Archaeal large subunit ribosomal RNA: a 359-nucleotide part of an RNA from Haloarcula marismortui. Lineage of the source: Archaea > Methanobacteriati > Methanobacteriota > Halobacteriales > Haloarcula. Pairs were carried over by alignment from the consensus structure, which is taken from published work.
RNA sequence: CGGGAGCAACCAACGUUAGGGAAUUCGGCAAGUUAGUCCCGUACCUUCGGAAGAAGGGAUGCCUGCUCCGGAACGGAGCAGGUCGCAGUGACUCGGAAGCUCGGACUGUCUAGUAACAACAUAGGUGACCGCAAAUCCGCAAGGACUCGUACGGUCACUGAAUCCUGCCCAGUGCAGGUAUCUGAACACCUCGUACAAGAGGACGAAGGACCUGUCAACGGCGGGGGUAACUAUGACCCUCUUAAGGUAGCGUAGUACCUUGCCGCAUCAGUAGCGGCUUGCAUGAAUGGAUUAACCAGAGCUUCACUGUCCCAACGUUGGGCCCGGUGAACUGUACAUUCCAGUGCGGAGUCUGGAGA
Numbered sequence: 001c002g003g004g005a006g007c008a009a010c011c012a013a014c015g016u017u018a019g020g021g022a023a024u025u026c027g028g029c030a031a032g033u034u035a036g037u038c039c040c041g042u043a044c045c046u047u048c049g050g051a052a053g054a055a056g057g058g059a060u061g062c063c064u065g066c067u068c069c070g071g072a073a074c075g076g077a078g079c080a081g082g083u084c085g086c087a088g089u090g091a092c093u094c095g096g097a098a099g100c101u102c103g104g105a106c107u108g109u110c111u112a113g114u115a116a117c118a119a120c121a122u123a124g125g126u127g128a129c130c131g132c133a134a135a136u137c138c139g140c141a142a143g144g145a146c147u148c149g150u151a152c153g154g155u156c157a158c159u160g161a162a163u164c165c166u167g168c169c170c171a172g173u174g175c176a177g178g179u180a181u182c183u184g185a186a187c188a189c190c191u192c193g194u195a196c197a198a199g200a201g202g203a204c205g206a207a208g209g210a211c212c213u214g215u216c217a218a219c220g221g222c223g224g225g226g227g228u229a230a231c232u233a234u235g236a237c238c239c240u241c242u243u244a245a246g247g248u249a250g251c252g253u254a255g256u257a258c259c260u261u262g263c264c265g266c267a268u269c270a271g272u273a274g275c276g277g278c279u280u281g282c283a284u285g286a287a288u289g290g291a292u293u294a295a296c297c298a299g300a301g302c303u304u305c306a307c308u309g310u311c312c313c314a315a316c317g318u319u320g321g322g323c324c325c326g327g328u329g330a331a332c333u334g335u336a337c338a339u340u341c342c343a344g345u346g347c348g349g350a351g352u353c354u355g356g357a358g359a
Stems, first nucleotide, its partner, number of pairs: 001326004010321008019312003036060005045050001061083009084088001096305007103297002107121003124159008132149001136145003162292004167222003172219002174215005181210003189202004223241006242246001262278005340357005